A member of the RNA family "Small nucleolar RNA SNORD82" from Leptobrachium leishanense, 66 nucleotides long. About the family: snoRNA U82 or Z25 is found in both humans and mice. A search with the family's covariance model found it, with a score of 48 bits. Lineage of the source: Eukaryota > Dipnotetrapodomorpha > Tetrapoda > Batrachia > Leptobrachium. It is annotated as a C/D-box small nucleolar RNA. Rfam 15.1 lists 649 matches to the family in 590 species.
[Rfam]
RNA sequence: GGUACAAAUGAUGAUAUUUUGGGACUUAAUUCUGAAAUCCUUGAUGUGUAAUAUGGGCUGAUGUGC
Numbered sequence: 001g002g003u004a005c006a007a008a009u010g011a012u013g014a015u016a017u018u019u020u021g022g023g024a025c026u027u028a029a030u031u032c033u034g035a036a037a038u039c040c041u042u043g044a045u046g047u048g049u050a051a052u053a054u055g056g057g058c059u060g061a062u063g064u065g066c
Stems, first nucleotide, its partner, number of pairs: 002066005